[Rfam]
RNA sequence: CUUGAGCGACCCGAGCCAGAGCGGCUGGUCCUGGCGUUCCCGGCCGUAGGUGGCGAUGAGCGCCUGGGCCUC
Number, nucleotide and partner (000 for none) at each position: 001c000002u000003u000004g000005a000006g000007c000008g000009a000010c000011c000012c000013g000014a026015g025016c024017c023018a000019g000020a000021g000022c000023g017024g016025c015026u014027g000028g000029u000030c000031c068032u067033g000034g000035c062036g061037u000038u000039c000040c000041c000042g000043g000044c053045c052046g051047u000048a000049g000050g000051u046052g045053g044054c000055g000056a000057u000058g000059a000060g000061c036062g035063c000064c000065u000066g000067g032068g031069c000070c000071u000072c000